The family of this 160-nucleotide RNA from Handroanthus impetiginosus is "U12 minor spliceosomal RNA". The organism belongs to Handroanthus, within Eukaryota. A reference for the family is Tarn and Steitz (1997), "Pre-mRNA splicing: the discovery of a new spliceosome doubles the challenge", Trends Biochem Sci. The family's RNA type in Rfam is spliceosomal small nuclear RNA.
RNA sequence: UUGCCUUAAACUAAUGAGUAAGGAAAACAAAGCGGGCGGUGAGAGCCGACCGCCGCACCCAUAAACCAUUCAUGUGGUGCAAGAAUUUAUGGAGGGGCAAUAGGCUGGCUGGGCGUUGACGCUGCUUACUUCGCAGAACUCGUCUGAGCGGGCCUCCCAC
Numbered sequence: 001u002u003g004c005c006u007u008a009a010a011c012u013a014a015u016g017a018g019u020a021a022g023g024a025a026a027a028c029a030a031a032g033c034g035g036g037c038g039g040u041g042a043g044a045g046c047c048g049a050c051c052g053c054c055g056c057a058c059c060c061a062u063a064a065a066c067c068a069u070u071c072a073u074g075u076g077g078u079g080c081a082a083g084a085a086u087u088u089a090u091g092g093a094g095g096g097g098c099a100a101u102a103g104g105c106u107g108g109c110u111g112g113g114c115g116u117u118g119a120c121g122c123u124g125c126u127u128a129c130u131u132c133g134c135a136g137a138a139c140u141c142g143u144c145u146g147a148g149c150g151g152g153c154c155u156c157c158c159a160c
Base pairs, nucleotide, nucleotide: 004023005022006021007020008019032053033052034051035050037048038047039046055080056079057078058077059076094160096158097157102155103154104153105152106151108149110146111145113143114142115141122136123135124134125133